This 79-nucleotide sequence from Medicago truncatula belongs to the Rfam family "MIR5269 microRNA precursor family". The family's consensus secondary structure was predicted with RNAalifold. Rfam links the family to the GO terms RISC complex and miRNA-mediated post-transcriptional gene silencing.
Nucleotides: 079
Stems, first nucleotide, its partner, number of pairs: 001079004006074001008072006015065004022057003025053002028050001030048002
Number, partner (000 for none) and nucleotide at each position: 001079u002078u003077g004076g005000u006074u007000u008072a009071a010070a011069u012068c013067a014000u015065u016064g017063u018062g019000g020000a021000u022057c023056u024055a025053u026052a027000c028050u029000c030048u031047g032000a033000a034000a035000a036000u037000a038000g039000c040000a041000c042000u043000u044000a045000c046000g047031c048030a049000a050028a051000a052026u053025g054000g055024u056023a057022g058000a059000a060000c061000a062018u063017a064016c065015a066000u067013u068012g069011a070010u071009u072008u073000c074006a075000u076004c077003c078002a079001a